This 101-nucleotide RNA from Gallus gallus belongs to the Rfam family "Y RNA". Lineage of the source: Eukaryota > Eumetazoa > Sauria > Galliformes > Gallus. Rfam's curators put it in the seed alignment. The family's consensus secondary structure is taken from published work.
[Rfam]
RNA sequence: GGCUGGUCCGAUGGCAAUGGCAUUUAUAAUAAUUGAUCACAGUCCGUUACAGAUUUCUUUGCUCUUUCUCCACUCCCACUGCUGCAUUUGACUAGUCUUUU
Numbered sequence: 001g002g003c004u005g006g007u008c009c010g011a012u013g014g015c016a017a018u019g020g021c022a023u024u025u026a027u028a029a030u031a032a033u034u035g036a037u038c039a040c041a042g043u044c045c046g047u048u049a050c051a052g053a054u055u056u057c058u059u060u061g062c063u064c065u066u067u068c069u070c071c072a073c074u075c076c077c078a079c080u081g082c083u084g085c086a087u088u089u090g091a092c093u094a095g096u097c098u099u100u101u
Stems, first nucleotide, its partner, number of pairs: 001097008010089002014085002016080001018078003031063001033061001035059002